[Rfam]
RNA sequence: CAAGCGGAAGUCGAAAAGCUUAUAGAGUAGACA
Numbered sequence: 001c002a003a004g005c006g007g008a009a010g011u012c013g014a015a016a017a018g019c020u021u022a023u024a025g026a027g028u029a030g031a032c033a
Stems, first nucleotide, its partner, number of pairs: 002021004010032003
This 33-nucleotide RNA from Urechidicola croceus belongs to the Rfam family "DUF805b RNA". The source organism's lineage runs through Bacteria, Pseudomonadati, Bacteroidota, Flavobacteriaceae and Urechidicola. The family's RNA type in Rfam is cis-regulatory element. The family is grouped with related families in Rfam's "DUF805 clan".